[Rfam]
RNA sequence: ACAUAGUGAUGGUUGCAUAGUUCAGCAGAUUGAGUUGUGAAGAUAUGUUAUUUGUCUGAUGUGUCU
Numbered sequence: 001a002c003a004u005a006g007u008g009a010u011g012g013u014u015g016c017a018u019a020g021u022u023c024a025g026c027a028g029a030u031u032g033a034g035u036u037g038u039g040a041a042g043a044u045a046u047g048u049u050a051u052u053u054g055u056c057u058g059a060u061g062u063g064u065c066u
Stems, first nucleotide, its partner, number of pairs: 001064004006038005013028004041053005
Small nucleolar RNA SNORD77: a 66-nucleotide sequence from Dasypus novemcinctus. The source organism's lineage runs through Eukaryota, Metazoa, Chordata, Mammalia and Dasypus. The base pairs follow the family's consensus structure, which was predicted with RNAalifold. Rfam's curators put it in the seed alignment. U77 belongs to the C/D family of snoRNAs. It is predicted to guide 2'O-ribose methylation of large 28S rRNA subunit at position A1521. The C/D snoRNAs U44, U47, U74, U75, U76, U78, U79, U80 and U81 share the same host gene as U77 (non-coding). The literature on the family includes a 2004 paper in Curr Biol by Tycowski et al., "Guide RNAs with 5' caps and novel box C/D snoRNA-like domains for modification of snRNAs in metazoa".